[Rfam]
RNA sequence: AACUGUCAGUGAUGAUUUUUGUUAAAACAAUGGGAAUCUCUCUGAAAAAGAGUGAAUGAAGGUUUUAUUUCUGAUGCAGUG
Numbered sequence: 001a002a003c004u005g006u007c008a009g010u011g012a013u014g015a016u017u018u019u020u021g022u023u024a025a026a027a028c029a030a031u032g033g034g035a036a037u038c039u040c041u042c043u044g045a046a047a048a049a050g051a052g053u054g055a056a057u058g059a060a061g062g063u064u065u066u067a068u069u070u071c072u073g074a075u076g077c078a079g080u081g
Base pairs, nucleotide, nucleotide: 002080003079004078005077006076

Shown here is an 81-nucleotide sequence from Channa argus, a member of the family "Small nucleolar RNA SNORD79".
Clan: SNORD74 clan.
snoRNA U79 or Z22 is found in intron 7 of the gas5 gene in humans and is also present in mice.
A reference for the family is Galardi et al. (2002), "Purified box C/D snoRNPs are able to reproduce site-specific 2'-O-methylation of target RNA in vitro", Mol Cell Biol.
By type it is a C/D-box small nucleolar RNA.
Rfam links the family to the GO terms nucleolus and RNA processing.
It scores 68 bits against the family's covariance model.
The organism belongs to Channa, within Eukaryota.